RNA sequence: UCCGGAGUGAUCUGAAAUCUGAAGGGAAUUGGAGGAAAACGAAGGAAAACUUUCGACCUGAGAAACACGACUCUUAUAUAUAACGGACUCGUUGAAAUAAGAUGGCGUAAACACAUUGAAGUCCUAAUCAUCAAAUGUUGAGAAAGUAAAUAAAACAAAUACAAGUGAAAAAAAUUAGAAUAUU
Numbered sequence: 001u002c003c004g005g006a007g008u009g010a011u012c013u014g015a016a017a018u019c020u021g022a023a024g025g026g027a028a029u030u031g032g033a034g035g036a037a038a039a040c041g042a043a044g045g046a047a048a049a050c051u052u053u054c055g056a057c058c059u060g061a062g063a064a065a066c067a068c069g070a071c072u073c074u075u076a077u078a079u080a081u082a083a084c085g086g087a088c089u090c091g092u093u094g095a096a097a098u099a100a101g102a103u104g105g106c107g108u109a110a111a112c113a114c115a116u117u118g119a120a121g122u123c124c125u126a127a128u129c130a131u132c133a134a135a136u137g138u139u140g141a142g143a144a145a146g147u148a149a150a151u152a153a154a155a156c157a158a159a160u161a162c163a164a165g166u167g168a169a170a171a172a173a174a175u176u177a178g179a180a181u182a183u184u
Stems, first nucleotide, its partner, number of pairs: 001016001003014004038184002041181001046176001051170005056160001059157002072155001074153004083147002088142004093137001097122002101117004
Record summary:
The family of this 184-nucleotide RNA from Bacillus taeanensis is "Group II catalytic intron D1-D4-3". The match comes from Rfam's covariance-model search (44 bits). From the family's description: Group II introns are found in rRNA, tRNA and mRNA of organelles in fungi, plants and protists, and also in mRNA in bacteria.